[Rfam]
RNA sequence: ACAAAGGCUCUUUUAAGAGCCACCCACAAAUCGCACAAUGAGAGCU
Number, nucleotide and partner (000 for none) at each position: 001a000002c000003a000004a000005a000006g021007g020008c019009u018010c017011u016012u000013u000014u000015a000016a011017g010018a009019g008020c007021c006022a000023c000024c000025c000026a000027c000028a000029a000030a000031u000032c000033g000034c000035a000036c000037a000038a000039u000040g000041a000042g000043a000044g000045c000046u000

Background: The record is a 46-nucleotide sequence from Podargus strigoides, which matches "Histone 3' UTR stem-loop" in Rfam. The source organism's lineage runs through Eukaryota, Deuterostomia, Gnathostomata, Sauria and Podargus. Pairs were carried over by alignment from the consensus structure, which is taken from published work. On this family, see Williams and Marzluff, Nucleic Acids Res 1995: "The sequence of the stem and flanking sequences at the 3' end of histone mRNA are critical determinants for the binding of the stem-loop binding protein". By type it is a cis-regulatory element. The mRNAs of metazoan histone genes lack a poly-A tail. 3' end processing occurs at a site between a highly conserved stem-loop (modelled by this family) and a purine rich region around 20 nts downstream (the histone downstream element, or HDE). The stem-loop is bound by a 31 kDa stem-loop binding protein (SLBP - also termed the histone hairpin binding protein, or HBP). Together with U7 snRNA binding of the HDE, SLBP binding nucleate s the formation of the processing complex. The histone 3' UTR stem-loop is also involved in nucleocytoplasmic transport of the mRNA, and in stability regulation and translation efficiency in the cytoplasm.